[Rfam]
RNA: serC leader
RNA sequence: CCGCGGGACACCCCUCCCCACCGAGGGGCGCCUAUCUGAAAGGAUAGUGAUC
Dot-bracket structure: ..........((((((......))))))...((((((....)))))).....